[Rfam]
RNA sequence: CCCGAGACUGUAGAGUCACAUCUGGGCCCUGCUGUGGCCCUGGUGUGCUGGAGUCCUCGGACAGGAACCACUGAUCUCUGUUCACUGGCUGUGCCCUGCCUGGCUCAGUCAGUCACCGGGUUAGUGACAGCA
Numbered sequence: 001c002c003c004g005a006g007a008c009u010g011u012a013g014a015g016u017c018a019c020a021u022c023u024g025g026g027c028c029c030u031g032c033u034g035u036g037g038c039c040c041u042g043g044u045g046u047g048c049u050g051g052a053g054u055c056c057u058c059g060g061a062c063a064g065g066a067a068c069c070a071c072u073g074a075u076c077u078c079u080g081u082u083c084a085c086u087g088g089c090u091g092u093g094c095c096c097u098g099c100c101u102g103g104c105u106c107a108g109u110c111a112g113u114c115a116c117c118g119g120g121u122u123a124g125u126g127a128c129a130g131c132a
Stems, first nucleotide, its partner, number of pairs: 002060005007054003014049002017047006025039004071124007084113005090107002093104003
RNA: Small nucleolar RNA SNORA3/SNORA45 family